[Rfam]
RNA sequence: UGAUGCCUGUUCCUCCUACUGCCUUUAGGUAUGGCUCUAGGGUUUUAGGUCAUCAUAAAUUACAAUUGAUUUUUUUCACUCAGAGAAUAUUAAGAUAUUGGGAUUAUCUAUAUAUUCUCUGAAAUUUGUGGGAUCAAACAGCC
Numbered sequence: 001u002g003a004u005g006c007c008u009g010u011u012c013c014u015c016c017u018a019c020u021g022c023c024u025u026u027a028g029g030u031a032u033g034g035c036u037c038u039a040g041g042g043u044u045u046u047a048g049g050u051c052a053u054c055a056u057a058a059a060u061u062a063c064a065a066u067u068g069a070u071u072u073u074u075u076u077c078a079c080u081c082a083g084a085g086a087a088u089a090u091u092a093a094g095a096u097a098u099u100g101g102g103a104u105u106a107u108c109u110a111u112a113u114a115u116u117c118u119c120u121g122a123a124a125u126u127u128g129u130g131g132g133a134u135c136a137a138a139c140a141g142c143c
Stems, first nucleotide, its partner, number of pairs: 001055005007049002014042005021035003068135006080122010093109005
This 143-nucleotide sequence from Peromyscus maniculatus belongs to the Rfam family "Small nucleolar RNA SNORA79". Taxonomically the source falls in Peromyscus maniculatus (Eukaryota, Gnathostomata, Eutheria, Cricetidae). The base pairs follow the family's consensus structure, which was predicted with RNAalifold. On this family, see Schattner et al., RNA 2006: "A computational screen for mammalian pseudouridylation guide H/ACA RNAs". From the family's description: ACA65 (SNORA79) is a member of the H/ACA class of snoRNAs that guide the sites of modification of uridines to pseudouridines. This snoRNA was identified by computational screening and its expression in mouse experimentally verified by Northern blot and primer extension analysis. The match comes from Rfam's covariance-model search (141 bits).